[Rfam]
RNA sequence: GUCGAGCUCGGUAGCAUGAGCUUGUAACCUGUGCGGGAGCUUUGGGUUGAUGGAACACUGGGCCGCACCUUUGGAUAGGGCGUGGUGGCGUUCUUCUCGUCUGCCCAAUCCAAGUUGGGACUUGGCCAAGGUGCCUCCGCGAAGGCGGAGGUGUCUUGGUUGUUGAAUUGGGGAGGGUAAUGUGUGAAGCUGCCAAGGUGCCUCCGCGAAGGCGGAGGUGUCUUGGUUGUUGAAUUGGGGAGGGUAAUGCGUGAAGCUGAAUUCACAGAGUAGCGAAAAUCUCCUACUCUCUUCAGUGGAUGGUGCAACCCAAGCUCAUCAAGUGCCCGGUGGGUGGCACCAACAGAACCAUAAAUC
Numbered sequence: 001g002u003c004g005a006g007c008u009c010g011g012u013a014g015c016a017u018g019a020g021c022u023u024g025u026a027a028c029c030u031g032u033g034c035g036g037g038a039g040c041u042u043u044g045g046g047u048u049g050a051u052g053g054a055a056c057a058c059u060g061g062g063c064c065g066c067a068c069c070u071u072u073g074g075a076u077a078g079g080g081c082g083u084g085g086u087g088g089c090g091u092u093c094u095u096c097u098c099g100u101c102u103g104c105c106c107a108a109u110c111c112a113a114g115u116u117g118g119g120a121c122u123u124g125g126c127c128a129a130g131g132u133g134c135c136u137c138c139g140c141g142a143a144g145g146c147g148g149a150g151g152u153g154u155c156u157u158g159g160u161u162g163u164u165g166a167a168u169u170g171g172g173g174a175g176g177g178u179a180a181u182g183u184g185u186g187a188a189g190c191u192g193c194c195a196a197g198g199u200g201c202c203u204c205c206g207c208g209a210a211g212g213c214g215g216a217g218g219u220g221u222c223u224u225g226g227u228u229g230u231u232g233a234a235u236u237g238g239g240g241a242g243g244g245u246a247a248u249g250c251g252u253g254a255a256g257c258u259g260a261a262u263u264c265a266c267a268g269a270g271u272a273g274c275g276a277a278a279a280u281c282u283c284c285u286a287c288u289c290u291c292u293u294c295a296g297u298g299g300a301u302g303g304u305g306c307a308a309c310c311c312a313a314g315c316u317c318a319u320c321a322a323g324u325g326c327c328c329g330g331u332g333g334g335u336g337g338c339a340c341c342a343a344c345a346g347a348a349c350c351a352u353a354a355a356u357c
Stems, first nucleotide, its partner, number of pairs: 001040002004023007028037003045357004050352004056346001059342002062338005068333002071330004076325002078317004083312003087309001105303002108301005114294001117291004122286001123162018163237001238285006248277001250275003257268003
The record is a 357-nucleotide sequence from Ipomoea nil, which matches "Plant signal recognition particle RNA" in Rfam.
The organism belongs to Ipomoea, within Eukaryota.
By type it is a non-coding RNA gene.